[Rfam]
RNA sequence: UGCCUCAUUCCAGAUGAGAGGGGGCACUGCUGAUUGGUGUCCUAGAUUGGUCAAUGUGGCUAAAUUGAGACACAGGUCAUGCUUCCAUCACAGUAAAUGCACUGCAGUGGUGACAAUGAGAUCUGUAACAUUU
Numbered sequence: 001u002g003c004c005u006c007a008u009u010c011c012a013g014a015u016g017a018g019a020g021g022g023g024g025c026a027c028u029g030c031u032g033a034u035u036g037g038u039g040u041c042c043u044a045g046a047u048u049g050g051u052c053a054a055u056g057u058g059g060c061u062a063a064a065u066u067g068a069g070a071c072a073c074a075g076g077u078c079a080u081g082c083u084u085c086c087a088u089c090a091c092a093g094u095a096a097a098u099g100c101a102c103u104g105c106a107g108u109g110g111u112g113a114c115a116a117u118g119a120g121a122u123c124u125g126u127a128a129c130a131u132u133u
Stems, first nucleotide, its partner, number of pairs: 002060003006056003021043007072126005086112006
Shown here is a 133-nucleotide sequence from Castor canadensis, a member of the family "Small nucleolar RNA SNORA1". The base pairs follow the family's consensus structure, which was predicted with PFOLD. NCBI's taxonomy places the organism under Eukaryota, Chordata, Vertebrata, Castorimorpha, Castor. About the family: ACA1 is a member of the H/ACA class of snoRNA that guide the sites of modification of uridines to pseudouridines. It scores 138 bits against the family's covariance model. The family's RNA type in Rfam is H/ACA-box small nucleolar RNA.